[Rfam]
Shown here is a 76-nucleotide RNA sequence from Nocardioides zeae, a member of the family "ZMP/ZTP riboswitch aptamer (pfl RNA motif)". A search with the family's covariance model found it, with a score of 44 bits.

RNA sequence: UCAGCGGCACACGACUGGCGCAGGUGGGAAACCACCAGGGAGUGAAACGAGCGCAUCGACCGCCUGGGUGCCUCGA
Numbered sequence: 001u002c003a004g005c006g007g008c009a010c011a012c013g014a015c016u017g018g019c020g021c022a023g024g025u026g027g028g029a030a031a032c033c034a035c036c037a038g039g040g041a042g043u044g045a046a047a048c049g050a051g052c053g054c055a056u057c058g059a060c061c062g063c064c065u066g067g068g069u070g071c072c073u074c075g076a
Stems, first nucleotide, its partner, number of pairs: 005049002010044003015039002017064004024035004053071005